A member of the RNA family "Plastid-psbA-1 3UTR RNA" from Silene paradoxa, 121 nucleotides long.
Rfam describes the family as follows. Plastid psbA-1 is a non-coding RNA (ncRNA) present in plastids. It was identified in inverted repeat sequences in the 3 prime untranslate region (3UTR) of photosystem II quinone-binding protein (psbA).
By type it is a cis-regulatory element.

[Rfam]
RNA sequence: GUUGAAGUUCCAUCUACAAAUGGAUAAAAUUGCUUUUUAAGUUCUGUAUAUACGAGUUUUUUGAAAGUAAAGGGGCAAUACUAGUUUCUUGAUUAAAAAAGCAAUUUUUUAUUGCCCCUUU
Numbered sequence: 001g002u003u004g005a006a007g008u009u010c011c012a013u014c015u016a017c018a019a020a021u022g023g024a025u026a027a028a029a030u031u032g033c034u035u036u037u038u039a040a041g042u043u044c045u046g047u048a049u050a051u052a053c054g055a056g057u058u059u060u061u062u063g064a065a066a067g068u069a070a071a072g073g074g075g076c077a078a079u080a081c082u083a084g085u086u087u088c089u090u091g092a093u094u095a096a097a098a099a100a101g102c103a104a105u106u107u108u109u110u111a112u113u114g115c116c117c118c119u120u121u
Stems, first nucleotide, its partner, number of pairs: 009024005069121012083107001084105001086103001088101003